[Rfam]
RNA sequence: GUCUUGUCUGUGAUGUACUUAAACACAAAUGUCUGAACAAAUGAGAUCCUGUGAUUCUUCCUACUUUACUGAGACAAGAC
Numbered sequence: 001g002u003c004u005u006g007u008c009u010g011u012g013a014u015g016u017a018c019u020u021a022a023a024c025a026c027a028a029a030u031g032u033c034u035g036a037a038c039a040a041a042u043g044a045g046a047u048c049c050u051g052u053g054a055u056u057c058u059u060c061c062u063a064c065u066u067u068a069c070u071g072a073g074a075c076a077a078g079a080c
Stems, first nucleotide, its partner, number of pairs: 002079007

Rfam assigns this 80-nucleotide RNA from Betta splendens to the family "Small nucleolar RNA SNORD72". The source organism's lineage runs through Eukaryota, Bilateria, Actinopteri, Euacanthomorphacea and Betta. Rfam classes the family as a C/D-box small nucleolar RNA. Gene Ontology terms of the family: nucleolus and RNA processing. Pairs were carried over by alignment from the consensus structure. The family has 16 seed sequences and 726 matches in Rfam 15.1. Rfam's curators write: snoRNA HBII-240 belongs to the CD family of snoRNAs. On this family, see Huttenhofer et al., EMBO J 2001: "RNomics: an experimental approach that identifies 201 candidates for novel, small, non-messenger RNAs in mouse".